Rfam assigns this 140-nucleotide RNA sequence from Geobacter sp. SVR to the family "c-di-AMP riboswitch aptamer (ydaO/yuaA leader)". This family represents a conserved RNA structure found upstream of the ydaO and yuaA genes in Bacillus subtilis and related genes in other bacteria.

RNA sequence: CCUGAAAAGCAGCCGAGAUCCGUUCAUCGUGGAACGGAUGCGGGGGACCCGAUCAACAGGGGCGAACUCCGGACUACCGGAGGGAGAACUUCCUAUCUCCAGCCCGUCAGCUAACCUCGUAGGCACCAGGAAGAGCAUCG
Numbered sequence: 001c002c003u004g005a006a007a008a009g010c011a012g013c014c015g016a017g018a019u020c021c022g023u024u025c026a027u028c029g030u031g032g033a034a035c036g037g038a039u040g041c042g043g044g045g046g047a048c049c050c051g052a053u054c055a056a057c058a059g060g061g062g063c064g065a066a067c068u069c070c071g072g073a074c075u076a077c078c079g080g081a082g083g084g085a086g087a088a089c090u091u092c093c094u095a096u097c098u099c100c101a102g103c104c105c106g107u108c109a110g111c112u113a114a115c116c117u118c119g120u121a122g123g124c125a126c127c128a129g130g131a132a133g134a135g136c137a138u139c140g
Stems, first nucleotide, its partner, number of pairs: 012124003018039008040120006050059001060105003068081004083099002086096001